SraG RNA: a 174-nucleotide RNA.
Its family is annotated with sRNA-mediated gene silencing and mRNA binding in the Gene Ontology.
It is annotated as a small RNA.
About the family: This RNA was discovered in E. coli during a large scale screen. Evidence was found for specific cleavage of this RNA.
Nucleotides: 174
Base pairs, nucleotide, nucleotide: 001091002090003089004088006087010083011082012081017074018073019072020071022067023066024065025064026063027062028061098126152169153168154167155166156165157164
Number, partner (000 for none) and nucleotide at each position: 001091c002090u003089u004088c005000u006087c007000a008000c009000u010083a011082c012081a013000u014000c015000c016000u017074c018073g019072c020071g021000a022067c023066u024065a025064a026063u027062g028061a029000c030000a031000a032000u033000c034000c035000u036000u037000a038000u039000c040000u041000c042000a043000g044000g045000c046000g047000g048000g049000a050000g051000a052000u053000a054000a055000a056000g057000c058000c059000u060000c061028u062027c063026a064025u065024u066023a067022g068000c069000c070000g071020c072019g073018c074017g075000a076000a077000c078000c079000u080000c081012u082011g083010u084000a085000a086000c087006g088004g089003a090002a091001g092000a093000a094000c095000c096000u097000g098126u099000u100000u101000g102000g103000a104000a105000a106000c107000a108000u109000c110000a111000g112000u113000a114000a115000u116000a117000c118000a119000u120000u121000a122000a123000c124000c125000u126098g127000a128000u129000u130000u131000g132000c133000u134000u135000a136000u137000g138000c139000u140000u141000c142000c143000u144000a145000g146000a147000a148000g149000a150000a151000a152169g153168g154167g155166g156165c157164c158000a159000a160000a161000a162000u163000a164157g165156g166155c167154c168153c169152c170000u171000u172000u173000c174000c
The match comes from Rfam's covariance-model search (147 bits). On this family, see Argaman et al., Curr Biol 2001: "Novel small RNA-encoding genes in the intergenic regions of Escherichia coli". The base pairs follow the family's consensus structure, which was predicted with PFOLD.